Notes: The family of this 99-nucleotide RNA from Enteroscipio rubneri is "Glycine riboswitch aptamer". The literature on the family includes a 2004 paper in Science by Mandal et al., "A glycine-dependent riboswitch that uses cooperative binding to control gene expression". NCBI's taxonomy places the organism under Bacteria, Actinomycetota, Eggerthellales, Eggerthellaceae, Enteroscipio. The family is grouped with related families in Rfam's "Glycine riboswitch clan".

Nucleotides: 099
Base pairs, nucleotide, nucleotide: 009091010090011089012088013087020035021034022033023032037079038078039077040075041074044073045072046071050066051065052064053063054062055061
Number, partner (000 for none) and nucleotide at each position: 001000g002000a003000a004000g005000g006000g007000g008000c009091c010090u011089c012088u013087g014000g015000a016000g017000a018000a019000u020035c021034c022033c023032g024000g025000c026000g027000a028000g029000a030000a031000c032023c033022g034021g035020g036000u037079g038078c039077c040075g041074a042000a043000g044073g045072g046071g047000c048000a049000a050066g051065g052064c053063g054062g055061c056000c057000a058000a059000g060000c061055g062054c063053c064052g065051c066050c067000g068000a069000a070000a071046c072045u073044c074041u075040c076000a077039g078038g079037c080000a081000a082000a083000a084000g085000g086000a087013c088012a089011g090010a091009g092000c093000g094000a095000a096000g097000a098000u099000g